[Rfam]
Nucleotides: 115
Base pairs, nucleotide, nucleotide: 005035006034007033008032009031013030014029015028016027017026018025047072048071051068052067053066054065055064057062080108081107082106083105084104085103086102087101088100089099090098091097
Number, partner (000 for none) and nucleotide at each position: 001000u002000a003000u004000a005035c006034c007033u008032u009031u010000a011000a012000a013030u014029c015028g016027g017026u018025c019000c020000c021000g022000u023000g024000a025018g026017a027016c028015u029014g030013a031009a032008a033007a034006g035005g036000a037000u038000u039000a040000u041000g042000a043000a044000u045000a046000c047072u048071g049000g050000u051068u052067g053066u054065g055064u056000u057062c058000u059000g060000g061000u062057g063000u064055a065054u066053a067052u068051a069000u070000g071048u072047a073000u074000a075000u076000a077000a078000a079000c080108a081107c082106c083105c084104c085103u086102u087101u088100a089099g090098u091097c092000u093000u094000a095000c096000g097091g098090a099089u100088u101087a102086a103085a104084g105083g106082g107081g108080u109000u110000a111000u112000u113000u114000a115000u

PyrR binding site: a 115-nucleotide RNA from Alkaliphilus pronyensis.
By type it is a cis-regulatory element.
A search with the family's covariance model found it, with a score of 55 bits.
For this family Rfam cites "Molecular recognition of pyr mRNA by the Bacillus subtilis attenuation regulatory protein PyrR" (Bonner et al., Nucleic Acids Res, 2001).
NCBI's taxonomy places the organism under Bacteria, Bacillati, Bacillota, Clostridia, Alkaliphilus.
Pairs were carried over by alignment from the consensus structure, which is taken from published work.